[Rfam]
RNA sequence: AAAAAGGGUCGGAUGGCUAUUUAUGCCACGCUCAGCCUGAGAUUUAAAAGGGUGAGUGCUGUAUGGCACAAUCAAGACAUAUGGCCGACAUUAUUUAUGGAAACCCCCAUAGGGUUGGCUCGCUCGGCCGACCCUCCA
Numbered sequence: 001a002a003a004a005a006g007g008g009u010c011g012g013a014u015g016g017c018u019a020u021u022u023a024u025g026c027c028a029c030g031c032u033c034a035g036c037c038u039g040a041g042a043u044u045u046a047a048a049a050g051g052g053u054g055a056g057u058g059c060u061g062u063a064u065g066g067c068a069c070a071a072u073c074a075a076g077a078c079a080u081a082u083g084g085c086c087g088a089c090a091u092u093a094u095u096u097a098u099g100g101a102a103a104c105c106c107c108c109a110u111a112g113g114g115u116u117g118g119c120u121c122g123c124u125c126g127g128c129c130g131a132c133c134c135u136c137c138a
Base pairs, nucleotide, nucleotide: 008089009088010087011086012085014028015027016026017025029058030057031056032055033054034053036051037050038049059084060083061082062081063080064079065078111135112134113133114132115131116130117129118128120127121126
Dot-bracket structure: .......(((((.((((.......))))((((((.(((..........))).))))))(((((((............)))))))))))).....................((((((((.((....))))))))))...